Rfam assigns this 68-nucleotide RNA from Malikia granosa to the family "ilvH RNA". Rfam classes the family as a cis-regulatory element.
[Rfam]
RNA sequence: GAAGAAUCUAUUGCCCGCCAAGCCCGCCGCUUACCGGCGUCGGGGGAGGGCGGCAAGAAGAGGAAUUG
Numbered sequence: 001g002a003a004g005a006a007u008c009u010a011u012u013g014c015c016c017g018c019c020a021a022g023c024c025c026g027c028c029g030c031u032u033a034c035c036g037g038c039g040u041c042g043g044g045g046g047a048g049g050g051c052g053g054c055a056a057g058a059a060g061a062g063g064a065a066u067u068g
Stems, first nucleotide, its partner, number of pairs: 011056003015053005023044004028039004

It scores 84 bits against the family's covariance model. Taxonomically the source falls in Malikia (Bacteria, Pseudomonadati, Betaproteobacteria, Comamonadaceae).